The family of this 129-nucleotide RNA from Paenibacillus wynnii is "SAM riboswitch aptamer (S box leader)".

RNA sequence: AUCUUAUCAAGAGCAGGUGGAGGGACUAGCCCGAUGAAACCCGGCAACCGGCGUGUAAACGCACGGUGCUAAUUCUUGCGGAAACUUGUGUGGCGCAUGCGUCAGGCAGGUUAUUCUGGCAGAUGAGAG
Numbered sequence: 001a002u003c004u005u006a007u008c009a010a011g012a013g014c015a016g017g018u019g020g021a022g023g024g025a026c027u028a029g030c031c032c033g034a035u036g037a038a039a040c041c042c043g044g045c046a047a048c049c050g051g052c053g054u055g056u057a058a059a060c061g062c063a064c065g066g067u068g069c070u071a072a073u074u075c076u077u078g079c080g081g082a083a084a085c086u087u088g089u090g091u092g093g094c095g096c097a098u099g100c101g102u103c104a105g106g107c108a109g110g111u112u113a114u115u116c117u118g119g120c121a122g123a124u125g126a127g128a129g
Stems, first nucleotide, its partner, number of pairs: 002128007013042001016041003022032003026078001028076002043070004048066002051062004074121001079118005
Dot-bracket structure: .(((((((....(..(((...(((.[.[[)))......))))((((.((.((((....))))..))))))...(]].](((((..............................)))))..)))))))).

The source organism's lineage runs through Bacteria, Bacillota, Caryophanales, Paenibacillaceae and Paenibacillus. Gene Ontology term of the family: regulation of gene expression.